Shown here is a 126-nucleotide RNA from Actinacidiphila reveromycinica, a member of the family "c-di-AMP riboswitch aptamer (ydaO/yuaA leader)". Its family is annotated with cyclic-di-AMP binding and regulation of gene expression in the Gene Ontology. A search with the family's covariance model found it, with a score of 41 bits.

RNA sequence: GGUCCGCGCCCGCCGGACCCGGCGGGCGCCGGAGCACCCUUGGGGUGAAGCCGCUGCAUGCGGCCGGGCGUCUUCGCCAGCCCGAACCCGACAGGUCACCCUUCGCAGGCUGAUGACGAAGGGUUG
Dot-bracket structure: .(((((.......))))).(((.((....((.........))(((.....((((.....))))..((((..........))))...))).........))..))).....................